Bacterial large subunit ribosomal RNA: a 448-nucleotide part of an RNA from Parahoeflea phototrophica. The literature on the family includes a 2002 paper in BMC Bioinformatics by Cannone et al., "The comparative RNA web (CRW) site: an online database of comparative sequence and structure information for ribosomal, intron, and other RNAs".
RNA sequence: CUCCGCGAAAUCUAUUUAGGUAGAGCGUCGACCGAAUACCCUCGGGGGUAGAGCACUGGAUGGGCUAUGGGGACUCACCGUCUUACUGAUCCUAACCAAACUCCGAAUACCGAGGAGUACUAGUCGGCAGACACACGGCGGGUGCUAACGUCCGUCGUGAAGAGGGAAACAACCCUGACCUCCAGCUAAGGUCCCCAAGUCAUGGCUAAGUGGGAAAGGAUGUGAGACUCCCAAAACAACCAGGAUGUUGGCUUAGAAGCAGCCAUCAUUUAAAGAAAGCGUAACAGCUCACUGGUCUAAAUAAGGGGUCUUGCGCCGAAAAUGUACCGGGGCUAAAGCCAUGCACCGAAGCUGAGGAUGUGCAGUUUACUGCACGUGGUAGCGGAGCGUUCCGUAAGCCUGUGAAGGGAGACCCGUGAGGGCUCCUGGAGGUAUCGGAAGUGCGAAU
Numbered sequence: 001c002u003c004c005g006c007g008a009a010a011u012c013u014a015u016u017u018a019g020g021u022a023g024a025g026c027g028u029c030g031a032c033c034g035a036a037u038a039c040c041c042u043c044g045g046g047g048g049u050a051g052a053g054c055a056c057u058g059g060a061u062g063g064g065c066u067a068u069g070g071g072g073a074c075u076c077a078c079c080g081u082c083u084u085a086c087u088g089a090u091c092c093u094a095a096c097c098a099a100a101c102u103c104c105g106a107a108u109a110c111c112g113a114g115g116a117g118u119a120c121u122a123g124u125c126g127g128c129a130g131a132c133a134c135a136c137g138g139c140g141g142g143u144g145c146u147a148a149c150g151u152c153c154g155u156c157g158u159g160a161a162g163a164g165g166g167a168a169a170c171a172a173c174c175c176u177g178a179c180c181u182c183c184a185g186c187u188a189a190g191g192u193c194c195c196c197a198a199g200u201c202a203u204g205g206c207u208a209a210g211u212g213g214g215a216a217a218g219g220a221u222g223u224g225a226g227a228c229u230c231c232c233a234a235a236a237c238a239a240c241c242a243g244g245a246u247g248u249u250g251g252c253u254u255a256g257a258a259g260c261a262g263c264c265a266u267c268a269u270u271u272a273a274a275g276a277a278a279g280c281g282u283a284a285c286a287g288c289u290c291a292c293u294g295g296u297c298u299a300a301a302u303a304a305g306g307g308g309u310c311u312u313g314c315g316c317c318g319a320a321a322a323u324g325u326a327c328c329g330g331g332g333c334u335a336a337a338g339c340c341a342u343g344c345a346c347c348g349a350a351g352c353u354g355a356g357g358a359u360g361u362g363c364a365g366u367u368u369a370c371u372g373c374a375c376g377u378g379g380u381a382g383c384g385g386a387g388c389g390u391u392c393c394g395u396a397a398g399c400c401u402g403u404g405a406a407g408g409g410a411g412a413c414c415c416g417u418g419a420g421g422g423c424u425c426c427u428g429g430a431g432g433u434a435u436c437g438g439a440a441g442u443g444c445g446a447a448u
Base pairs, nucleotide, nucleotide: 001387002386003385004384005383006382011024012023013022014021015020026130027128028127029126030125031124032123036121040115041114042113043112044111045110051104052102053101057098058097059096061094062093063092064091069086070084071083072082073081074080134159135158136157137156138155139154140153141152142151143150164175165174166173179357180356181355182354184353185352186351190347191346192345199344201343202342203341204340205339206338218317219316222314223313224312225311226310227309228308229307230306231305239296240295241294242293243292245269246268247267250264251263252262270274275290279288280287358377359376360375361374362373363372364371365370388443390440391439392438393437394436398433399432400431407427408426409425410424411423413422414421415420